The family of this 221-nucleotide sequence from Cytobacillus solani is "Bacillus sRNA ncr1575". By type it is a small RNA. It scores 61 bits against the family's covariance model. The organism belongs to Cytobacillus, within Bacteria.
[Rfam]
RNA sequence: UAUCAAAAAAAGGAAGGGUGUCCGUGGAACAAUGAACAAUUAAUCCUAUUUGUUAAGAAAAAAUUCGUUUAUGAUACGAUUCAUUUUUUCUAGAUAGGAUUAGUCUGUACACUUUUAUACAAACGAUAUGUUCAUUGUGUCCCUUCCAUCAGGGGUAUUAUGCCAUUUUGGUGUUGUAUUGUACCUUCUCCUCCUGUCUAGAAUAUUGACAGGAGGUUUUA
Numbered sequence: 001u002a003u004c005a006a007a008a009a010a011a012g013g014a015a016g017g018g019u020g021u022c023c024g025u026g027g028a029a030c031a032a033u034g035a036a037c038a039a040u041u042a043a044u045c046c047u048a049u050u051u052g053u054u055a056a057g058a059a060a061a062a063a064u065u066c067g068u069u070u071a072u073g074a075u076a077c078g079a080u081u082c083a084u085u086u087u088u089u090c091u092a093g094a095u096a097g098g099a100u101u102a103g104u105c106u107g108u109a110c111a112c113u114u115u116u117a118u119a120c121a122a123a124c125g126a127u128a129u130g131u132u133c134a135u136u137g138u139g140u141c142c143c144u145u146c147c148a149u150c151a152g153g154g155g156u157a158u159u160a161u162g163c164c165a166u167u168u169u170g171g172u173g174u175u176g177u178a179u180u181g182u183a184c185c186u187u188c189u190c191c192u193c194c195u196g197u198c199u200a201g202a203a204u205a206u207u208g209a210c211a212g213g214a215g216g217u218u219u220u221a
Stems, first nucleotide, its partner, number of pairs: 016116003024110003029104002041102012058089003062086002124170003133162003137158005190216009200206001